RNA sequence: ACUAGAAAAUAGCAAAUCUAUAGAAAUAUAGAGACGCAAAGCCACGGGUCUAAGGAGAAUGACUCUAUGAUAGCCGGGUUGCCUAA
Numbered sequence: 001a002c003u004a005g006a007a008a009a010u011a012g013c014a015a016a017u018c019u020a021u022a023g024a025a026a027u028a029u030a031g032a033g034a035c036g037c038a039a040a041g042c043c044a045c046g047g048g049u050c051u052a053a054g055g056a057g058a059a060u061g062a063c064u065c066u067a068u069g070a071u072a073g074c075c076g077g078g079u080u081g082c083c084u085a086a
Stems, first nucleotide, its partner, number of pairs: 012037002017032006040080004045076003048071003055065003
Rfam assigns this 86-nucleotide RNA from Paenalkalicoccus suaedae to the family "c-di-GMP-I riboswitch aptamer". Taxonomically the source falls in Paenalkalicoccus (Bacteria, Bacillati, Bacillota, Bacilli). A search with the family's covariance model found it, with a score of 84 bits. Gene Ontology term of the family: cyclic-di-GMP binding.